[Rfam]
RNA sequence: UUGACAUACAAAUGAGAAUCGUUAUUAUUAGCACAACUGAUCGCAAGAUCAGCCGAUGACUAAAAGCCAACAGGUCGGUUUUUUAAUGUUAUCUCCUCAUCAGGCUAAACACGGUUUUGACCCGCACUUGUGCGGGUCUUUUUUUG
Numbered sequence: 001u002u003g004a005c006a007u008a009c010a011a012a013u014g015a016g017a018a019u020c021g022u023u024a025u026u027a028u029u030a031g032c033a034c035a036a037c038u039g040a041u042c043g044c045a046a047g048a049u050c051a052g053c054c055g056a057u058g059a060c061u062a063a064a065a066g067c068c069a070a071c072a073g074g075u076c077g078g079u080u081u082u083u084u085a086a087u088g089u090u091a092u093c094u095c096c097u098c099a100u101c102a103g104g105c106u107a108a109a110c111a112c113g114g115u116u117u118u119g120a121c122c123c124g125c126a127c128u129u130g131u132g133c134g135g136g137u138c139u140u141u142u143u144u145u146g
Stems, first nucleotide, its partner, number of pairs: 034055001037052006061085001062083004067077001095104003119138008

This 146-nucleotide RNA sequence from Pseudomonas sp. C27(2019) belongs to the Rfam family "PrrF RNA". It scores 118 bits against the family's covariance model. A reference for the family is Wilderman et al. (2004), "Identification of tandem duplicate regulatory small RNAs in Pseudomonas aeruginosa involved in iron homeostasis", Proc Natl Acad Sci U S A. It is annotated as a small RNA. Rfam describes the family as follows. PrrF RNA is a small RNA involved in iron homeostasis and is found exclusively in Pseudomonas species.